[Rfam]
RNA sequence: GUGAAAUAAAUCACAUAACAAACAUACACCCCUUUGUUUGAACGUGAACAUUUCUCCCAUCCCCUUUGUGUAAGAGGCGUCAUUAUUAUUCAGAAUAAUGACGCCUC
Numbered sequence: 001g002u003g004a005a006a007u008a009a010a011u012c013a014c015a016u017a018a019c020a021a022a023c024a025u026a027c028a029c030c031c032c033u034u035u036g037u038u039u040g041a042a043c044g045u046g047a048a049c050a051u052u053u054c055u056c057c058c059a060u061c062c063c064c065u066u067u068g069u070g071u072a073a074g075a076g077g078c079g080u081c082a083u084u085a086u087u088a089u090u091c092a093g094a095a096u097a098a099u100g101a102c103g104c105c106u107c
Stems, first nucleotide, its partner, number of pairs: 003054005011047004019040006077104011